[Rfam]
RNA sequence: CACGUUGUUCAUUCCUCUUCCUAAAAUGGCUUCUUCUCCUUUAGUUGUUGCAAUUAUAGGAGAGGAGAAUCCAUUUUAGGAAGGGAAUGAAUACUGUG
Numbered sequence: 001c002a003c004g005u006u007g008u009u010c011a012u013u014c015c016u017c018u019u020c021c022u023a024a025a026a027u028g029g030c031u032u033c034u035u036c037u038c039c040u041u042u043a044g045u046u047g048u049u050g051c052a053a054u055u056a057u058a059g060g061a062g063a064g065g066a067g068a069a070u071c072c073a074u075u076u077u078a079g080g081a082a083g084g085g086a087a088u089g090a091a092u093a094c095u096g097u098g
Stems, first nucleotide, its partner, number of pairs: 001098004006093010017083013031069005036062005042056004